Shown here is a 68-nucleotide RNA sequence from Drosophila busckii, a member of the family "mir-3 microRNA precursor family".
The base pairs follow the family's consensus structure, which was predicted with RNAalifold.
Gene Ontology terms of the family: RISC complex and miRNA-mediated post-transcriptional gene silencing.
The match comes from Rfam's covariance-model search (58 bits).
The family is grouped with related families in Rfam's "mir-3 clan".
Rfam 15.1 lists 52 matches to the family in 31 species.
[Rfam]
RNA sequence: AUUAUAUGGCUAACUUGCUGCAGUCUUGUCAACUUCUUCGCAUCACUGGGCGAAGUUUGUCGUAUAAU
Dot-bracket structure: ....((((((.(((....(.((((....................)))).)....))).))))))....
A reference for the family is Aravin et al. (2003), "The small RNA profile during Drosophila melanogaster development", Dev Cell.